[Rfam]
RNA sequence: AUACCCCAUGAUGCUCAGGUCCGCCGCAUCUCCUGAAUCGUGGGGUUGGCCGGCCGGGUUCAGACAGUGUGGCUUCCUCGUACCGCAGUCUAUUCCCGGUCGGCCGCCGA
Numbered sequence: 001a002u003a004c005c006c007c008a009u010g011a012u013g014c015u016c017a018g019g020u021c022c023g024c025c026g027c028a029u030c031u032c033c034u035g036a037a038u039c040g041u042g043g044g045g046u047u048g049g050c051c052g053g054c055c056g057g058g059u060u061c062a063g064a065c066a067g068u069g070u071g072g073c074u075u076c077c078u079c080g081u082a083c084c085g086c087a088g089u090c091u092a093u094u095c096c097c098g099g100u101c102g103g104c105c106g107c108c109g110a
Base pairs, nucleotide, nucleotide: 003046004045005044006043007042008041009040010039015036016035017034018033019032048105049104050103051102052101053100054099055098056097057096058095
Rfam assigns this 110-nucleotide sequence from Pararhizobium mangrovi to the family "EcpR1". Lineage of the source: Bacteria > Pseudomonadota > Alphaproteobacteria > Hyphomicrobiales > Pararhizobium. It scores 96 bits against the family's covariance model. The family's RNA type in Rfam is small RNA. About the family: Perviously named SmelC291, SmrC10, or Sra33. According to its overproduction phenotype it was renamed Elongated Cell Phenotype RNA1. Induced by stress,EcpR1 negatively regulates cell cycle master regulatory genes dnaA and gcrA at post-transcriptional level by base pairing between its strongly conserved GC-rich loop and the target mRNAs. It's regulation is hfq-independent but requires RNase E to regulate dnaA. Pairs were carried over by alignment from the consensus structure, which was predicted with WAR.